[Rfam]
RNA sequence: CGGCUAAUAUCUAUGCAGAGUUGGACCGUUAUACAAUUAAAUCAAUAGGUUUUAAUAAUUUAAAAUGUCCGGCAUCGUAAAGAGCUGGAACGGAGG
Numbered sequence: 001c002g003g004c005u006a007a008u009a010u011c012u013a014u015g016c017a018g019a020g021u022u023g024g025a026c027c028g029u030u031a032u033a034c035a036a037u038u039a040a041a042u043c044a045a046u047a048g049g050u051u052u053u054a055a056u057a058a059u060u061u062a063a064a065a066u067g068u069c070c071g072g073c074a075u076c077g078u079a080a081a082g083a084g085c086u087g088g089a090a091c092g093g094a095g096g
Stems, first nucleotide, its partner, number of pairs: 001028003004024005010019002066092003069088005075083002
Overview: pan motif: a 96-nucleotide sequence from Andreesenella acetica. The family's consensus secondary structure is taken from published work. NCBI's taxonomy places the organism under Bacteria, Bacillota, Peptostreptococcales, Natronincolaceae, Andreesenella. The family's RNA type in Rfam is cis-regulatory element.